The family of this 359-nucleotide RNA is "Bacterial RNase P class B".
Its Rfam clan is "RNaseP clan".
The family's RNA type in Rfam is ribozyme.
On this family, see Frank and Pace, Annu Rev Biochem 1998: "Ribonuclease P: unity and diversity in a tRNA processing ribozyme".
A search with the family's covariance model found it, with a score of 207 bits.
RNA sequence: CUAAAGUGUUGGUGGCAGCCAUUUAAAAUGGUUGAGGAAAGUCCGUCCUCGCCUCGGCUGGAAUGCCGAGAGUUUUAGUGCUAGAUCUAAUAAAUCUAGGUCGGAGUUUCAUAGUCUCCGAACGGCUGACGAAGUAUCUAAGUAUCUUUUUCGAUAUAGGAUAUCAGUCUUUAAAAGUGCUAUAGUGACGAUUACUUGGGAAACCAAGGAAGUGAGACGUCGUAAACCCCGCUAGCGAGCAAUCCAAAUUCUUAAUUGGUAGGAGCCCCAAAAAAGGAGAAUAAAUAAUCCUGCUUUGGUAAUUUCCCUUGGGAAGUUAAGAUAGAUCACCGAGUAAAUACAGAAUACGGCUUAUUCUU
Numbered sequence: 001c002u003a004a005a006g007u008g009u010u011g012g013u014g015g016c017a018g019c020c021a022u023u024u025a026a027a028a029u030g031g032u033u034g035a036g037g038a039a040a041g042u043c044c045g046u047c048c049u050c051g052c053c054u055c056g057g058c059u060g061g062a063a064u065g066c067c068g069a070g071a072g073u074u075u076u077a078g079u080g081c082u083a084g085a086u087c088u089a090a091u092a093a094a095u096c097u098a099g100g101u102c103g104g105a106g107u108u109u110c111a112u113a114g115u116c117u118c119c120g121a122a123c124g125g126c127u128g129a130c131g132a133a134g135u136a137u138c139u140a141a142g143u144a145u146c147u148u149u150u151u152c153g154a155u156a157u158a159g160g161a162u163a164u165c166a167g168u169c170u171u172u173a174a175a176a177g178u179g180c181u182a183u184a185g186u187g188a189c190g191a192u193u194a195c196u197u198g199g200g201a202a203a204c205c206a207a208g209g210a211a212g213u214g215a216g217a218c219g220u221c222g223u224a225a226a227c228c229c230c231g232c233u234a235g236c237g238a239g240c241a242a243u244c245c246a247a248a249u250u251c252u253u254a255a256u257u258g259g260u261a262g263g264a265g266c267c268c269c270a271a272a273a274a275a276g277g278a279g280a281a282u283a284a285a286u287a288a289u290c291c292u293g294c295u296u297u298g299g300u301a302a303u304u305u306c307c308c309u310u311g312g313g314a315a316g317u318u319a320a321g322a323u324a325g326a327u328c329a330c331c332g333a334g335u336a337a338a339u340a341c342a343g344a345a346u347a348c349g350g351c352u353u354a355u356u357c358u359u
Stems, first nucleotide, its partner, number of pairs: 004359003009333006016034006039353003043350004048239005053070006076234005081099006100123001101121006124229002128169003135163004142157005177227002179223002192211002195208005243264003268299005300319008